[Rfam]
RNA sequence: GUCUUAUCAAGAGAGAUGGAGGGAAUGGCCCGAUGAUAUCUCAGCAACCAGCCGUCCGCGGUAUGGUGCUACGUCCAUCAAGCAUAAUAUGCUUGAAAGAUAAGAA
Numbered sequence: 001g002u003c004u005u006a007u008c009a010a011g012a013g014a015g016a017u018g019g020a021g022g023g024a025a026u027g028g029c030c031c032g033a034u035g036a037u038a039u040c041u042c043a044g045c046a047a048c049c050a051g052c053c054g055u056c057c058g059c060g061g062u063a064u065g066g067u068g069c070u071a072c073g074u075c076c077a078u079c080a081a082g083c084a085u086a087a088u089a090u091g092c093u094u095g096a097a098a099g100a101u102a103a104g105a106a
Stems, first nucleotide, its partner, number of pairs: 002105007013042005021031003025078004043070004048066002051062004074098001079095006

The family of this 106-nucleotide RNA sequence from Sporosarcina sp. Te-1 is "SAM riboswitch aptamer (S box leader)". Lineage of the source: Bacteria > Bacilli > Caryophanales > Caryophanaceae > Sporosarcina. Pairs were carried over by alignment from the consensus structure, which is taken from published work.